[Rfam]
RNA: MIR480 microRNA precursor family
Organism: Populus trichocarpa
RNA sequence: UAAUUUGUUUGGGGUAGAUCAUCAUCUAGUUGUGGCAUAUCUACACCUGACUGCUCAGAAUCACUAGUUUUCUUAACCCUGACUACAUCAUCCUUUAAAAAUGCAUAUCUCUCCCAAAAUAUAUAUGUGUAAACAUGGUUAACAAGAA
Dot-bracket structure: ...(((((...(.((..((...(((.((.((.....................................................................................)).))...))).))..)).)....).))))..